[Rfam]
Nucleotides: 100
Base pairs, nucleotide, nucleotide: 020084021083022082023081024080025079031046032045033044034043035042057076058075059074060073061072062071063070
Number, partner (000 for none) and nucleotide at each position: 001000a002000g003000a004000a005000u006000c007000a008000u009000a010000u011000g012000g013000c014000g015000g016000u017000a018000u019000a020084c021083g022082c023081g024080u025079a026000u027000a028000a029000a030000c031046u032045c033044g034043g035042g036000a037000a038000u039000c040000g041000g042035c043034c044033c045032g046031a047000a048000c049000g050000u051000c052000u053000c054000u055000a056000c057076c058075c059074g060073g061072a062071a063070a064000c065000c066000u067000u068000a069000a070063u071062u072061u073060c074059c075058g076057g077000a078000c079025u080024a081023c082022g083021c084020g085000g086000c087000a088000u089000u090000u091000c092000g093000c094000c095000c096000c097000u098000a099000g100000u
The record is a 100-nucleotide sequence from Cohnella candida, which matches "Purine riboswitch aptamer" in Rfam. Riboswitches are metabolite binding domains within certain messenger RNAs that serve as precision sensors for their corresponding targets. Allosteric rearrangement of mRNA structure is mediated by ligand binding, and this results in modulation of gene expression. A class of riboswitches that selectively recognises guanine and becomes saturated at concentrations as low as 5 nM. In Bacillus subtilis, this mRNA motif is located on at least five separate transcriptional units that together encode 17 genes that are mostly involved in purine transport and purine nucleotide biosynthesis. It has also been shown that some members of this family are specific for adenine instead.